A member of the RNA family "bZIP non canonical Hac1/Xbp1 intron" from Eleutherodactylus coqui, 74 nucleotides long.
The base pairs follow the family's consensus structure, which was predicted with RNAfold.
Rfam classes the family as a small RNA.
On this family, see Iracane et al., mSphere 2018: "Identification of an Exceptionally Long Intron in the HAC1 Gene of Candida parapsilosis".
The organism belongs to Eleutherodactylus, within Eukaryota.
Rfam 15.1 lists 1,325 matches to the family in 1,320 species.
A search with the family's covariance model found it, with a score of 54 bits.
[Rfam]
RNA sequence: AGGUGACCGGGUCCGCUGAGUCCGCAGCACUCAGACUAUGUGCGCCUCUGCAGCAGGAGCAGGCCCAGUUGUCU
Numbered sequence: 001a002g003g004u005g006a007c008c009g010g011g012u013c014c015g016c017u018g019a020g021u022c023c024g025c026a027g028c029a030c031u032c033a034g035a036c037u038a039u040g041u042g043c044g045c046c047u048c049u050g051c052a053g054c055a056g057g058a059g060c061a062g063g064c065c066c067a068g069u070u071g072u073c074u
Stems, first nucleotide, its partner, number of pairs: 001074007009066005016034006043059001045057003